[Rfam]
RNA sequence: GGGUCAAUGAUGAUACAGUUUCUGUCAUGAAGAGUGGUGAUAACAUAAAAAUCAUGCUCAAUAGGAUUACACUGAGGCCC
Numbered sequence: 001g002g003g004u005c006a007a008u009g010a011u012g013a014u015a016c017a018g019u020u021u022c023u024g025u026c027a028u029g030a031a032g033a034g035u036g037g038u039g040a041u042a043a044c045a046u047a048a049a050a051a052u053c054a055u056g057c058u059c060a061a062u063a064g065g066a067u068u069a070c071a072c073u074g075a076g077g078c079c080c
Stems, first nucleotide, its partner, number of pairs: 001080004005074002008071002
This 80-nucleotide sequence from Jaculus jaculus belongs to the Rfam family "Small nucleolar RNA SNORD115".
The family's RNA type in Rfam is C/D-box small nucleolar RNA.
Rfam links the family to the GO terms RNA processing and nucleolus.
Taxonomically the source falls in Jaculus (Eukaryota, Chordata, Sarcopterygii, Tetrapoda).